[Rfam]
RNA sequence: CCCUCUGAAGUUUCCCUCAGGAUAGCUGGCACUCGGCAAUGGGCAGUUUUACCCAGUAAAGCGAAUGAUUAGAGGUCUUGGGGCUGAAACAAUCUCAACCUAUUCUCAAACUUUCAAUGGGUAAGGGGGCCGGCUUGCUCGCAUGGACCCGUGCCGUCGAAUGCAAGUGCUCAGUAAGCAGACCUGGCGCUGUGGGAUGAAGCAAACACUGGGUUAAGGUGCCCGAUGCCGACGCUCAUCAGAGCCCAGAAAAGGUGUUGGUUGAUCUAGACAGCAGGAUGGUGGCCUGGAAGUCGGAAUCCGCUAAGGAGUGUGUAACAGCUCACCUGCCGAAUCAACUAGCCCUGAAAAUGGAUGGCGCUGGAGCGUCGAGCCCAUACCUGGCCAUCACUGGCAGUGUGAUGCCUGCGGGGGCUAGGCUGCGACAAGUAGGAGGGCCGCUGCGGUGAGCCUCGAAGCCUGGGGCGUGGGCCUGGGUGGGGCUGCCGCAGGUGCAGAU
Numbered sequence: 001c002c003c004u005c006u007g008a009a010g011u012u013u014c015c016c017u018c019a020g021g022a023u024a025g026c027u028g029g030c031a032c033u034c035g036g037c038a039a040u041g042g043g044c045a046g047u048u049u050u051a052c053c054c055a056g057u058a059a060a061g062c063g064a065a066u067g068a069u070u071a072g073a074g075g076u077c078u079u080g081g082g083g084c085u086g087a088a089a090c091a092a093u094c095u096c097a098a099c100c101u102a103u104u105c106u107c108a109a110a111c112u113u114u115c116a117a118u119g120g121g122u123a124a125g126g127g128g129g130c131c132g133g134c135u136u137g138c139u140c141g142c143a144u145g146g147a148c149c150c151g152u153g154c155c156g157u158c159g160a161a162u163g164c165a166a167g168u169g170c171u172c173a174g175u176a177a178g179c180a181g182a183c184c185u186g187g188c189g190c191u192g193u194g195g196g197a198u199g200a201a202g203c204a205a206a207c208a209c210u211g212g213g214u215u216a217a218g219g220u221g222c223c224c225g226a227u228g229c230c231g232a233c234g235c236u237c238a239u240c241a242g243a244g245c246c247c248a249g250a251a252a253a254g255g256u257g258u259u260g261g262u263u264g265a266u267c268u269a270g271a272c273a274g275c276a277g278g279a280u281g282g283u284g285g286c287c288u289g290g291a292a293g294u295c296g297g298a299a300u301c302c303g304c305u306a307a308g309g310a311g312u313g314u315g316u317a318a319c320a321g322c323u324c325a326c327c328u329g330c331c332g333a334a335u336c337a338a339c340u341a342g343c344c345c346u347g348a349a350a351a352u353g354g355a356u357g358g359c360g361c362u363g364g365a366g367c368g369u370c371g372a373g374c375c376c377a378u379a380c381c382u383g384g385c386c387a388u389c390a391c392u393g394g395c396a397g398u399g400u401g402a403u404g405c406c407u408g409c410g411g412g413g414g415c416u417a418g419g420c421u422g423c424g425a426c427a428a429g430u431a432g433g434a435g436g437g438c439c440g441c442u443g444c445g446g447u448g449a450g451c452c453u454c455g456a457a458g459c460c461u462g463g464g465g466c467g468u469g470g471g472c473c474u475g476g477g478u479g480g481g482g483c484u485g486c487c488g489c490a491g492g493u494g495c496a497g498a499u
Stems, first nucleotide, its partner, number of pairs: 001437006011024001013022003028171006047126008059114001060112002066108003071103001073101003078098006085091001128155003131151003135147002178188002193204002209384004214379001218375003227372001229371001233368003253346003257343010274330005280303003286297002304308001309324001313322002388425002391422001393420001439494001441491008450483002458478002464473003

A member of the RNA family "Eukaryotic large subunit ribosomal RNA" from Tychaedon coryphoeus, 499 nucleotides of a longer RNA. It scores 2218 bits against the family's covariance model.